[Rfam]
RNA sequence: AUUUUUAAUAUUCUCCGAGCCUGGUUGUCUAAAGUUUAAAGCCAUGGCGCCAGGCCGAUAGGGUAUAUUGGGAAACUGGUAUGCCUCCACUUUUGGGAAGGAGAUGAUAAGGUAUAGUA
Numbered sequence: 001a002u003u004u005u006u007a008a009u010a011u012u013c014u015c016c017g018a019g020c021c022u023g024g025u026u027g028u029c030u031a032a033a034g035u036u037u038a039a040a041g042c043c044a045u046g047g048c049g050c051c052a053g054g055c056c057g058a059u060a061g062g063g064u065a066u067a068u069u070g071g072g073a074a075a076c077u078g079g080u081a082u083g084c085c086u087c088c089a090c091u092u093u094u095g096g097g098a099a100g101g102a103g104a105u106g107a108u109a110a111g112g113u114a115u116a117g118u119a
Stems, first nucleotide, its partner, number of pairs: 004112001006110001012104005019055007027048003034042003061086011087096002

Molybdenum/Tungsten riboswitch aptamer (Moco RNA motif): a 119-nucleotide RNA from Peptococcaceae bacterium SCADC1_2_3. Lineage of the source: Bacteria > Bacillota > Clostridia > Eubacteriales > Peptococcaceae. Pairs were carried over by alignment from the consensus structure, which is taken from published work.